[Rfam]
RNA sequence: UCCUCGAUAGCUCAGUCGGUAGAGCAAGUGACUGUUAAUCACUGGGUCGCAGGUUCGAGUCCUGCUCGAGGAG
Numbered sequence: 001u002c003c004u005c006g007a008u009a010g011c012u013c014a015g016u017c018g019g020u021a022g023a024g025c026a027a028g029u030g031a032c033u034g035u036u037a038a039u040c041a042c043u044g045g046g047u048c049g050c051a052g053g054u055u056c057g058a059g060u061c062c063u064g065c066u067c068g069a070g071g072a073g
Base pairs, nucleotide, nucleotide: 001072002071003070004069005068006067007066010025011024012023013022027043028042029041030040031039049065050064051063052062053061
Shown here is a 73-nucleotide sequence from Litchfieldella anticariensis, a member of the family "tRNA". Lineage of the source: Bacteria > Pseudomonadati > Pseudomonadota > Halomonadaceae > Litchfieldella anticariensis. The match comes from Rfam's covariance-model search (72 bits). The family's consensus secondary structure is taken from published work.